[Rfam]
RNA sequence: GGGGGCGAAGAGGGCUCGACGGGGGAGGCAGAUCGUCGGUGGCAGGUCGGGGCCGCUCGGACCCCGUGAACAACCCGGGCAAACAACAGGUGCCAACCGCGAUUACGCGGCUCUCCCGCUGGCCGCCUAAGCCAGCGUGAGGGGACGGUCCCCCGAUGAGGGGACCCGCUCGACCGGACCCAUCGCCGACGGGGCCGGAUCGGGUGUGACAAAGUCGGCGUGCGGCGGCCUGGCGCCCCGGAAGGCCGCCUAAGAUCCCAGGGGCUGGCUGGCCGGAGACCUUGCCGGUUGGAGGACCGGCCGGCGAGAGGGAAGAACCGGAUAAGCCUGUAGGCACCGGCGAUCGAAUCUUCCGGACGCGGGUUCGAUUCCCGCCGCCUCCACCU
Numbered sequence: 001g002g003g004g005g006c007g008a009a010g011a012g013g014g015c016u017c018g019a020c021g022g023g024g025g026a027g028g029c030a031g032a033u034c035g036u037c038g039g040u041g042g043c044a045g046g047u048c049g050g051g052g053c054c055g056c057u058c059g060g061a062c063c064c065c066g067u068g069a070a071c072a073a074c075c076c077g078g079g080c081a082a083a084c085a086a087c088a089g090g091u092g093c094c095a096a097c098c099g100c101g102a103u104u105a106c107g108c109g110g111c112u113c114u115c116c117c118g119c120u121g122g123c124c125g126c127c128u129a130a131g132c133c134a135g136c137g138u139g140a141g142g143g144g145a146c147g148g149u150c151c152c153c154c155g156a157u158g159a160g161g162g163g164a165c166c167c168g169c170u171c172g173a174c175c176g177g178a179c180c181c182a183u184c185g186c187c188g189a190c191g192g193g194g195c196c197g198g199a200u201c202g203g204g205u206g207u208g209a210c211a212a213a214g215u216c217g218g219c220g221u222g223c224g225g226c227g228g229c230c231u232g233g234c235g236c237c238c239c240g241g242a243a244g245g246c247c248g249c250c251u252a253a254g255a256u257c258c259c260a261g262g263g264g265c266u267g268g269c270u271g272g273c274c275g276g277a278g279a280c281c282u283u284g285c286c287g288g289u290u291g292g293a294g295g296a297c298c299g300g301c302c303g304g305c306g307a308g309a310g311g312g313a314a315g316a317a318c319c320g321g322a323u324a325a326g327c328c329u330g331u332a333g334g335c336a337c338c339g340g341c342g343a344u345c346g347a348a349u350c351u352u353c354c355g356g357a358c359g360c361g362g363g364u365u366c367g368a369u370u371c372c373c374g375c376c377g378c379c380u381c382c383a384c385c386u
Base pairs, nucleotide, nucleotide: 001382002381003380004379005378006377007376020355021354022353023352024351025350026349031345032344033343034342035341036340037339038338039337040336041335043330044329045328046327047326048066049065050064051063052062055080056079057078058077059076060075114140115139117137118136119135120134121133122132123131167206168205169204170203171202172201174198175197176196177195180193181192185219186218187217188216189215190214224250225249226248227247228246229245230244231243235266237264238263239262268305269304270303271302272301273300274299275298276297280292281291286321289316290315359375360374361373362372363371
RNA: transfer-messenger RNA